[Rfam]
Shown here is a 107-nucleotide sequence from Acetivibrio saccincola, a member of the family "SAM riboswitch aptamer (S box leader)". Pairs were carried over by alignment from the consensus structure, which is taken from published work. The family is grouped with related families in Rfam's "SAM clan".
RNA sequence: GCCUUAUCAUGAGAGGUGGAGGGAAUGGGCCCAAUGAAACCCGGCAACCGGAACCAGUGGUAUCACGGUGCCAAUUCCUACAGGGUAAAGACCCUGAAAGAUGAGGA
Numbered sequence: 001g002c003c004u005u006a007u008c009a010u011g012a013g014a015g016g017u018g019g020a021g022g023g024a025a026u027g028g029g030c031c032c033a034a035u036g037a038a039a040c041c042c043g044g045c046a047a048c049c050g051g052a053a054c055c056a057g058u059g060g061u062a063u064c065a066c067g068g069u070g071c072c073a074a075u076u077c078c079u080a081c082a083g084g085g086u087a088a089a090g091a092c093c094c095u096g097a098a099a100g101a102u103g104a105g106g107a
Stems, first nucleotide, its partner, number of pairs: 002106007013042001015041003021032003026080004043072004048068002050064002053061001076099001081096006